[Rfam]
RNA sequence: AAUAAGUGCAGUUUACGUUUGACCGUUCGUCUUAUUUAAAAUUUUUUUACGAUUAAUAUUUUUAUUGUUAUUAUAUGAUAAAACAUAUAUAGUACUUUAUGCAACUAAGUUUUUUUAAUUUUCUCAUAAAUUUUUCAAAUAAGACAGACGGUCAAACGUUGGACACGGAUUCCCACGACUGCACUUAUU
Numbered sequence: 001a002a003u004a005a006g007u008g009c010a011g012u013u014u015a016c017g018u019u020u021g022a023c024c025g026u027u028c029g030u031c032u033u034a035u036u037u038a039a040a041a042u043u044u045u046u047u048u049a050c051g052a053u054u055a056a057u058a059u060u061u062u063u064a065u066u067g068u069u070a071u072u073a074u075a076u077g078a079u080a081a082a083a084c085a086u087a088u089a090u091a092g093u094a095c096u097u098u099a100u101g102c103a104a105c106u107a108a109g110u111u112u113u114u115u116u117a118a119u120u121u122u123c124u125c126a127u128a129a130a131u132u133u134u135u136c137a138a139a140u141a142a143g144a145c146a147g148a149c150g151g152u153c154a155a156a157c158g159u160u161g162g163a164c165a166c167g168g169a170u171u172c173c174c175a176c177g178a179c180u181g182c183a184c185u186u187a188u189u
Stems, first nucleotide, its partner, number of pairs: 012162002015159002018156010029145007
The record is a 189-nucleotide RNA sequence from Oryza sativa, which matches "MIR812 microRNA precursor family" in Rfam. Its family is annotated with miRNA-mediated post-transcriptional gene silencing and RISC complex in the Gene Ontology.